The record is a 480-nucleotide sequence from [Pantoea] beijingensis, which matches "cspA thermoregulator" in Rfam. Rfam links the family to the GO terms regulation of translation and response to temperature stimulus. The source organism's lineage runs through Bacteria, Pseudomonadati, Pseudomonadota, Enterobacterales and Erwinia. By type it is an RNA thermoregulator. It scores 128 bits against the family's covariance model.
RNA sequence: GGUAAAACGAGGUACAGUUCUGUUUAUGUGUGGCAUCUUCAGUAAAGAAGUUCUGAGUAAAGACGUUGACGUUGAAUACCGCUUCCUUGCCGAACCUUAAUUAGUGCCUCAUUCAGUAAUGUCUCUGGUUUCUCUGUAAGUAAGCCUACGGGCGAAUAAAUCACUCUAAGGAAUUUGCAAAAUGGCAAAGAUUAAAGGUCAGGUUAAGUGGUUCAACGAGUCUAAAGGUUUUGGUUUCAUUACUCCAGCCGACGGCAGCAAAGAUGUAUUCGUACAUUUCUCUGCCAUUCAGGGUAACGGCUUCAAAACGUUGGCCGAAGGCCAGAACGUUGAGUUCGAAAUUCAGGAUGGCCAAAAAGGCCCAGCAGCAGUUAACGUAACUGCCAUCUGAUUUUGACCCCAGCCAUAGCGUAGUGCCUGAUGCAUUUCGCCGCUGAAUCUCAAUAGAUAAAGCCUCAUCAUUUAUGAUGGGGCUUUUUC
Numbered sequence: 001g002g003u004a005a006a007a008c009g010a011g012g013u014a015c016a017g018u019u020c021u022g023u024u025u026a027u028g029u030g031u032g033g034c035a036u037c038u039u040c041a042g043u044a045a046a047g048a049a050g051u052u053c054u055g056a057g058u059a060a061a062g063a064c065g066u067u068g069a070c071g072u073u074g075a076a077u078a079c080c081g082c083u084u085c086c087u088u089g090c091c092g093a094a095c096c097u098u099a100a101u102u103a104g105u106g107c108c109u110c111a112u113u114c115a116g117u118a119a120u121g122u123c124u125c126u127g128g129u130u131u132c133u134c135u136g137u138a139a140g141u142a143a144g145c146c147u148a149c150g151g152g153c154g155a156a157u158a159a160a161u162c163a164c165u166c167u168a169a170g171g172a173a174u175u176u177g178c179a180a181a182a183u184g185g186c187a188a189a190g191a192u193u194a195a196a197g198g199u200c201a202g203g204u205u206a207a208g209u210g211g212u213u214c215a216a217c218g219a220g221u222c223u224a225a226a227g228g229u230u231u232u233g234g235u236u237u238c239a240u241u242a243c244u245c246c247a248g249c250c251g252a253c254g255g256c257a258g259c260a261a262a263g264a265u266g267u268a269u270u271c272g273u274a275c276a277u278u279u280c281u282c283u284g285c286c287a288u289u290c291a292g293g294g295u296a297a298c299g300g301c302u303u304c305a306a307a308a309c310g311u312u313g314g315c316c317g318a319a320g321g322c323c324a325g326a327a328c329g330u331u332g333a334g335u336u337c338g339a340a341a342u343u344c345a346g347g348a349u350g351g352c353c354a355a356a357a358a359g360g361c362c363c364a365g366c367a368g369c370a371g372u373u374a375a376c377g378u379a380a381c382u383g384c385c386a387u388c389u390g391a392u393u394u395u396g397a398c399c400c401c402a403g404c405c406a407u408a409g410c411g412u413a414g415u416g417c418c419u420g421a422u423g424c425a426u427u428u429c430g431c432c433g434c435u436g437a438a439u440c441u442c443a444a445u446a447g448a449u450a451a452a453g454c455c456u457c458a459u460c461a462u463u464u465a466u467g468a469u470g471g472g473g474c475u476u477u478u479u480c
Stems, first nucleotide, its partner, number of pairs: 004021001006019003009015001027247002032244002035241001047237001050236001052234002054228001061223004070218006078212003084184001087180004095171005103133002106130001144153003186198001251343002263271002276330002279327001281326004285321002289314004349364003365388001368385001369383005391445003396440002450477012
Dot-bracket structure: ...(.((((.....).))).).....((...((.(...........(..(.(((......((((.....((((((..(((...(..((((....(((((...((.(.......................).))..........(((....))).............))))).....))))...).(...........)...........))))))))).))))....)....)).))...).)).))...((..........((.....))....((.(.((((((..((((..................)))).....)).))))).))...........)).....(((..........)))(..((((((.....))))).)..)..(((..((.........................................))..)))....((((((((((((....))))))))))))...